The family of this 79-nucleotide RNA sequence from Hermetia illucens is "drz-agam-1 ribozyme". A search with the family's covariance model found it, with a score of 38 bits. Pairs were carried over by alignment from the consensus structure, which is taken from published work. The organism belongs to Hermetia, within Eukaryota.
RNA sequence: UACUAGCAAACCCUAUCUCCACCUCUACGUGGUGACCGCUGGGAGCUCUUUCGUAACGAAAAGCUGCCGACGGAGAAGG
Numbered sequence: 001u002a003c004u005a006g007c008a009a010a011c012c013c014u015a016u017c018u019c020c021a022c023c024u025c026u027a028c029g030u031g032g033u034g035a036c037c038g039c040u041g042g043g044a045g046c047u048c049u050u051u052c053g054u055a056a057c058g059a060a061a062a063g064c065u066g067c068c069g070a071c072g073g074a075g076a077a078g079g
Base pairs, nucleotide, nucleotide: 012079013078014077016075018073019072021033022032023031045065047063049061050060051059052058053057